Rfam assigns this 139-nucleotide RNA sequence from Listeria grayi to the family "Ribosomal protein L20 leader". Lineage of the source: Bacteria > Bacillati > Bacilli > Listeriaceae > Listeria grayi. This family is a putative r-protein leader autoregulatory structure found in B. subtilis and other low-GC Gram-positive bacteria. It is located in the 5' untranslated regions of mRNAs encoding initiation factor 3 followed by ribosomal proteins L35 and L20 (infC-rpmI-rplT). A Rho-independent transcription terminator structure that is probably involved in regulation is included at the 3' end. Pairs were carried over by alignment from the consensus structure, which was predicted with CMfinder. A search with the family's covariance model found it, with a score of 60 bits. Rfam classes the family as a cis-regulatory leader.
RNA sequence: ACAAGAAAGAAGAAGCAACCCGCUUCUCGCCUCGUUAACGGAACGUUUUCAGGCAAACAUUUCAAACACUAUAUCACGUUCGUCGUGAUUUUGGAUGUGCGGGCCUUGCUUUCUAGCAUGCCCGUUUUUUAAUGGUCUG
Numbered sequence: 001a002c003a004a005g006a007a008a009g010a011a012g013a014a015g016c017a018a019c020c021c022g023c024u025u026c027u028c029g030c031c032u033c034g035u036u037a038a039c040g041g042a043a044c045g046u047u048u049u050c051a052g053g054c055a056a057a058c059a060u061u062u063c064a065a066a067c068a069c070u071a072u073a074u075c076a077c078g079u080u081c082g083u084c085g086u087g088a089u090u091u092u093g094g095a096u097g098u099g100c101g102g103g104c105c106u107u108g109c110u111u112u113c114u115a116g117c118a119u120g121c122c123c124g125u126u127u128u129u130u131a132a133u134g135g136u137c138u139g
Stems, first nucleotide, its partner, number of pairs: 011027006029054003037047003099125006106118001